[Rfam]
RNA sequence: ACUUAACAGGCGCUGAAUUCCUGUUUGGAAGCGGGGGACCCACUUUUUUGGGGGUGAGUCUUACCGGGAUGGUAAGUAGGGCCACUCUUUCGGCCCGAAUCCGUCAGCUAACCUCGUAAGCGUGGAAGGAGCGGCGAG
Numbered sequence: 001a002c003u004u005a006a007c008a009g010g011c012g013c014u015g016a017a018u019u020c021c022u023g024u025u026u027g028g029a030a031g032c033g034g035g036g037g038a039c040c041c042a043c044u045u046u047u048u049u050g051g052g053g054g055u056g057a058g059u060c061u062u063a064c065c066g067g068g069a070u071g072g073u074a075a076g077u078a079g080g081g082c083c084a085c086u087c088u089u090u091c092g093g094c095c096c097g098a099a100u101c102c103g104u105c106a107g108c109u110a111a112c113c114u115c116g117u118a119a120g121c122g123u124g125g126a127a128g129g130a131g132c133g134g135c136g137a138g
Stems, first nucleotide, its partner, number of pairs: 011122004018030003031117006041051001052102003060076004079096004
This 138-nucleotide sequence from Clostridiales bacterium PH28_bin88 belongs to the Rfam family "c-di-AMP riboswitch aptamer (ydaO/yuaA leader)". Its family is annotated with regulation of gene expression and cyclic-di-AMP binding in the Gene Ontology. The organism belongs to Eubacteriales, within Bacteria. Pairs were carried over by alignment from the consensus structure. It scores 103 bits against the family's covariance model.